[Rfam]
RNA: UnaL2 LINE 3' element
Organism: Megalops atlanticus
RNA sequence: AAUUUUAACUUAUGUAAGUCGCUCUGAAUAAGAGCAUCUGUUAAAUGACAUUAG
Numbered sequence: 001a002a003u004u005u006u007a008a009c010u011u012a013u014g015u016a017a018g019u020c021g022c023u024c025u026g027a028a029u030a031a032g033a034g035c036a037u038c039u040g041u042u043a044a045a046u047g048a049c050a051u052u053a054g
Base pairs, nucleotide, nucleotide: 013043014041015040016039021035022034023033024032025031